[Rfam]
RNA: chrB-b RNA
RNA sequence: CCGGGAAAACAGCCUCCCGGCCUGCACAACCAGACGGUGUCCCGUCCAAGCGCUG
Numbered sequence: 001c002c003g004g005g006a007a008a009a010c011a012g013c014c015u016c017c018c019g020g021c022c023u024g025c026a027c028a029a030c031c032a033g034a035c036g037g038u039g040u041c042c043c044g045u046c047c048a049a050g051c052g053c054u055g
Stems, first nucleotide, its partner, number of pairs: 001020006010055004033046005